This 118-nucleotide RNA sequence from Cuscuta campestris belongs to the Rfam family "MIR408 microRNA precursor family". Lineage of the source: Eukaryota > Tracheophyta > Spermatophyta > lamiids > Cuscuta sect. Cleistogrammica. It scores 65 bits against the family's covariance model.

[Rfam]
RNA sequence: AGGUGGGAGUGAGGGUAGACGGGGACGAGGUAGAGCAUGAGAUGGGUCAUUCGGCUUCAAGGGUUGCCACCCUUCCCGUGCACUGCCUCUUCCCUGGCUUUCCUUUUCCCUACUCUUU
Numbered sequence: 001a002g003g004u005g006g007g008a009g010u011g012a013g014g015g016u017a018g019a020c021g022g023g024g025a026c027g028a029g030g031u032a033g034a035g036c037a038u039g040a041g042a043u044g045g046g047u048c049a050u051u052c053g054g055c056u057u058c059a060a061g062g063g064u065u066g067c068c069a070c071c072c073u074u075c076c077c078g079u080g081c082a083c084u085g086c087c088u089c090u091u092c093c094c095u096g097g098c099u100u101u102c103c104u105u106u107u108c109c110c111u112a113c114u115c116u117u118u
Base pairs, nucleotide, nucleotide: 017099018098020096021095022094023093024092025091028088029087030086031085032084033083035081036080037079038078039077041076045072046071